[Rfam]
RNA: Eukaryotic large subunit ribosomal RNA, nucleotides 3423 to 3815
Organism: Melanomma pulvis-pyrius
RNA sequence: AAUUAUUGCUCUAAUAGUAAUUCUGCUUAGUACAAAAGAAACUACAGAUUUAGAUAAUUAGUUUUUGUAGCUAUCUAACUAGGCAUUGCUGCAAAGCUACUAUCUGCUAGAUUAUAGCUAAACGCCUCUAAGUUAGAAUCUAUGCUAGAAAGGGGUGAAUUCUGCCUGCACAUUGAAGUUGAAUACAAAUAGGCCUUUAGCCUAGAACCUUAGCAGAUUAGCGUCUGUAUUCUUAUAGAAAUUAGGAGUACAUUGCUAAUAAAUUGCAAUUUUAUAGUACGCAGGAUUAAAUUCUUUGCAAACAACUUAGUUGUCUAGCUAGGUUGUGUAAGUAGUUAAGUAGCCUUGUUGUUACAAGCUACUAAGCGUAAGCCUGCUGCUAGCUUAGUUAAA
Number, nucleotide and partner (000 for none) at each position: 001a000002a000003u000004u000005a000006u158007u157008g156009c155010u154011c153012u152013a000014a000015u147016a146017g145018u144019a000020a050021u000022u048023c047024u046025g045026c000027u000028u000029a000030g000031u000032a000033c000034a000035a000036a000037a000038g000039a000040a000041a000042c000043u000044a000045c025046a024047g023048a022049u000050u020051u106052a105053g104054a103055u102056a000057a000058u000059u099060a098061g097062u000063u000064u000065u000066u093067g092068u091069a090070g089071c000072u085073a000074u083075c082076u081077a000078a000079c000080u000081a076082g075083g074084c000085a072086u000087u000088g000089c070090u069091g068092c067093a066094a000095a000096g000097c061098u060099a059100c000101u000102a055103u054104c053105u052106g051107c000108u142109a141110g140111a000112u000113u000114a000115u135116a134117g133118c132119u131120a000121a000122a000123c000124g000125c000126c000127u000128c000129u000130a000131a119132g118133u117134u116135a115136g000137a000138a000139u000140c110141u109142a108143u000144g018145c017146u016147a015148g000149a000150a000151a000152g012153g011154g010155g009156u008157g007158a006159a000160u000161u000162c000163u000164g000165c285166c284167u283168g282169c281170a000171c000172a000173u000174u000175g000176a000177a000178g000179u000180u000181g000182a000183a000184u000185a000186c000187a000188a000189a000190u000191a000192g000193g000194c000195c000196u000197u000198u000199a000200g000201c000202c000203u000204a000205g000206a000207a000208c000209c000210u000211u000212a000213g000214c000215a000216g000217a000218u000219u000220a000221g000222c000223g000224u000225c000226u000227g000228u000229a000230u000231u000232c000233u000234u000235a000236u000237a000238g000239a000240a000241a000242u000243u000244a000245g000246g000247a000248g000249u000250a000251c000252a000253u000254u000255g000256c000257u000258a000259a000260u000261a000262a000263a000264u000265u000266g000267c000268a000269a000270u000271u000272u000273u000274a000275u000276a000277g000278u000279a000280c000281g169282c168283a167284g166285g165286a000287u000288u000289a000290a390291a389292u388293u387294c310295u309296u000297u000298g306299c000300a000301a000302a000303c000304a000305a000306c298307u000308u000309a295310g294311u000312u000313g000314u000315c383316u382317a381318g380319c379320u000321a375322g374323g373324u000325u368326g367327u000328g000329u000330a000331a000332g362333u361334a360335g359336u000337u358338a000339a000340g355341u354342a353343g352344c351345c000346u000347u000348g000349u000350u000351g344352u343353u342354a341355c340356a000357a000358g337359c335360u334361a333362c332363u000364a000365a000366g000367c326368g325369u000370a000371a000372g000373c323374c322375u321376g000377c000378u000379g319380c318381u317382a316383g315384c000385u000386u000387a293388g292389u291390u290391a000392a000393a000